[Rfam]
RNA sequence: GCGUACGGAACUUUCUCGCAUUCGGUUGCAAGGGGGAGGGGAAUGGGUCCCCUCCGGUUGUGUACGCGGAAGG
Numbered sequence: 001g002c003g004u005a006c007g008g009a010a011c012u013u014u015c016u017c018g019c020a021u022u023c024g025g026u027u028g029c030a031a032g033g034g035g036g037a038g039g040g041g042a043a044u045g046g047g048u049c050c051c052c053u054c055c056g057g058u059u060g061u062g063u064a065c066g067c068g069g070a071a072g073g
Stems, first nucleotide, its partner, number of pairs: 001067007009059004014033002018029003035055008

Corio-PBP RNA: a 73-nucleotide sequence from Olsenella uli. The sequence is in the family's curated seed alignment. It is annotated as a small RNA. Lineage of the source: Bacteria > Bacillati > Actinomycetota > Coriobacteriia > Olsenella uli.